The family of this 112-nucleotide RNA sequence from Bacillus sp. MRMR6 is "epsC RNA".

RNA sequence: UGGUGAUGUCUUCUUACCAAUAUCAAUGAAGGCACUCGGUUAUGCUGUGGGUUGAAAUAAACCUUAGACGCAGGUCGUCGAAAGUAUGAUGUGAGGUGGGGUUGAAUGCCCU
Numbered sequence: 001u002g003g004u005g006a007u008g009u010c011u012u013c014u015u016a017c018c019a020a021u022a023u024c025a026a027u028g029a030a031g032g033c034a035c036u037c038g039g040u041u042a043u044g045c046u047g048u049g050g051g052u053u054g055a056a057a058u059a060a061a062c063c064u065u066a067g068a069c070g071c072a073g074g075u076c077g078u079c080g081a082a083a084g085u086a087u088g089a090u091g092u093g094a095g096g097u098g099g100g101g102u103u104g105a106a107u108g109c110c111c112u
Stems, first nucleotide, its partner, number of pairs: 001019004007034007035095004039090008049064005067079004098112005
The base pairs follow the family's consensus structure, which is taken from published work. NCBI's taxonomy places the organism under Bacteria, Bacillati, Bacillota, Bacillaceae, Bacillus. Rfam classes the family as a cis-regulatory element.